[Rfam]
RNA sequence: GUACUGAGAAGAGAGCUUUCUUCAGUCCACUCACGGGAGGUUAUAGGAUUCAAUUAGCUGCUGACUCAUUCAUCCAAAUACUGUGUUUCAAAAGGGCAGAAGAAAACCCAGUAAAUGAGUGAAUGAUGCGGGAGACAAGUUGGAUCUUAAGCUUCCUGUACUUGGACUGAAGGGAGCUCCCUUGAAUAUUCUA
Numbered sequence: 001g002u003a004c005u006g007a008g009a010a011g012a013g014a015g016c017u018u019u020c021u022u023c024a025g026u027c028c029a030c031u032c033a034c035g036g037g038a039g040g041u042u043a044u045a046g047g048a049u050u051c052a053a054u055u056a057g058c059u060g061c062u063g064a065c066u067c068a069u070u071c072a073u074c075c076a077a078a079u080a081c082u083g084u085g086u087u088u089c090a091a092a093a094g095g096g097c098a099g100a101a102g103a104a105a106a107c108c109c110a111g112u113a114a115a116u117g118a119g120u121g122a123a124u125g126a127u128g129c130g131g132g133a134g135a136c137a138a139g140u141u142g143g144a145u146c147u148u149a150a151g152c153u154u155c156c157u158g159u160a161c162u163u164g165g166a167c168u169g170a171a172g173g174g175a176g177c178u179c180c181c182u183u184g185a186a187u188a189u190u191c192u193a
Base pairs, nucleotide, nucleotide: 013179014178015177016176017175018174019173020172023169024168025167026166027165028164029163036156058134059133061131062130063129067125068124069123070122075117

Record summary
Shown here is a 193-nucleotide RNA sequence from Morus notabilis, a member of the family "MIR159 microRNA precursor family". Taxonomically the source falls in Morus (Eukaryota, Streptophyta, Tracheophyta, Moreae). Rfam links the family to the GO terms RISC complex and miRNA-mediated post-transcriptional gene silencing. The base pairs follow the family's consensus structure, which was predicted with WAR. It scores 155 bits against the family's covariance model.